[Rfam]
RNA sequence: GUAUUGCAUCAAGAACGCAAGGCGUACCAACCGACACUCGAUGCACGGUGGUUUAGAAUGUGGAGAUUAAAUCUCAAAUUAUCGAGAAAUCUCAAACUUGUUGCAAUUUUU
Numbered sequence: 001g002u003a004u005u006g007c008a009u010c011a012a013g014a015a016c017g018c019a020a021g022g023c024g025u026a027c028c029a030a031c032c033g034a035c036a037c038u039c040g041a042u043g044c045a046c047g048g049u050g051g052u053u054u055a056g057a058a059u060g061u062g063g064a065g066a067u068u069a070a071a072u073c074u075c076a077a078a079u080u081a082u083c084g085a086g087a088a089a090u091c092u093c094a095a096a097c098u099u100g101u102u103g104c105a106a107u108u109u110u111u
Stems, first nucleotide, its partner, number of pairs: 006061004015025004026052003031048003035043002038106001040104001063093006